[Rfam]
RNA sequence: GCGAGACAGGGGGUCCGUGACCGAGCACGACAGAUAAACUGUCCUCGGACGACGCCGGGCGCAGCCCCCGACCGUCCGCCAAUGAUCAGCCAGCAGCCGCUGCAACCACAGGGAG
Numbered sequence: 001g002c003g004a005g006a007c008a009g010g011g012g013g014u015c016c017g018u019g020a021c022c023g024a025g026c027a028c029g030a031c032a033g034a035u036a037a038a039c040u041g042u043c044c045u046c047g048g049a050c051g052a053c054g055c056c057g058g059g060c061g062c063a064g065c066c067c068c069c070g071a072c073c074g075u076c077c078g079c080c081a082a083u084g085a086u087c088a089g090c091c092a093g094c095a096g097c098c099g100c101u102g103c104a105a106c107c108a109c110a111g112g113g114a115g
Stems, first nucleotide, its partner, number of pairs: 047077005056070004091102004
RNA: Streptomyces-metK RNA